[Rfam]
RNA: U1 spliceosomal RNA
Organism: Marmota monax
RNA sequence: AAACUUACCUGGCAGCGGAAACACCACGAUCACGUAGAUGGUUUUCCCAGGGCGAGGCUCCUCCAUUGCACUUGGGAGGUGCUGACCCCUGCGAUUUCCCCAAAUGUGGGAAACUCGGCUACGUAAUUUGUGGUAGUGGGGACUGCGUUCGCGCUCUCCCCAG
Number, nucleotide and partner (000 for none) at each position: 001a000002a000003a000004c000005u000006u000007a000008c000009c000010u000011g000012g122013c000014a120015g119016c000017g047018g046019a045020a044021a043022c000023a042024c041025c040026a039027c000028g000029a000030u000031c000032a000033c000034g000035u000036a000037g000038a000039u026040g025041g024042u023043u021044u020045u019046c018047c017048c000049a090050g089051g088052g087053c000054g086055a000056g083057g082058c081059u000060c079061c078062u077063c076064c075065a000066u000067u000068g000069c000070a000071c000072u000073u000074g000075g064076g063077a062078g061079g060080u000081g058082c057083u056084g000085a000086c054087c052088c051089c050090u049091g000092c117093g116094a115095u113096u112097u111098c000099c109100c108101c000102a000103a000104a000105u000106g000107u000108g100109g099110g000111a097112a096113a095114c000115u094116c093117g092118g000119c015120u014121a000122c012123g000124u000125a000126a000127u000128u000129u000130g000131u000132g000133g000134u000135a000136g000137u162138g161139g160140g159141g158142a157143c000144u000145g154146c153147g152148u000149u000150c000151g000152c147153g146154c145155u000156c000157u142158c141159c140160c139161c138162a137163g000